RNA: Bacterial antisense RNA HPnc0260
RNA sequence: GAAAUGAAAGAUUAAGCGUUUUGAUAACAAAACUACGUAACUAUAAGAAAAUUUAAGGCGUGUUCUAGAUCUAGAUAAGAAAAUUGGAUACAUCAAGUGUAUGGUGCGUCCGAGUGGACUCGAACCACCGACCCCCACCA
Numbered sequence: 001g002a003a004a005u006g007a008a009a010g011a012u013u014a015a016g017c018g019u020u021u022u023g024a025u026a027a028c029a030a031a032a033c034u035a036c037g038u039a040a041c042u043a044u045a046a047g048a049a050a051a052u053u054u055a056a057g058g059c060g061u062g063u064u065c066u067a068g069a070u071c072u073a074g075a076u077a078a079g080a081a082a083a084u085u086g087g088a089u090a091c092a093u094c095a096a097g098u099g100u101a102u103g104g105u106g107c108g109u110c111c112g113a114g115u116g117g118a119c120u121c122g123a124a125c126c127a128c129c130g131a132c133c134c135c136c137a138c139c140a
Stems, first nucleotide, its partner, number of pairs: 020045001022043001027038002064080003102137003106133001111130002114128004
Dot-bracket structure: ...................(.(....((........))....).)..................(((...........))).....................(((.(....((.((((.......))))))..).)))...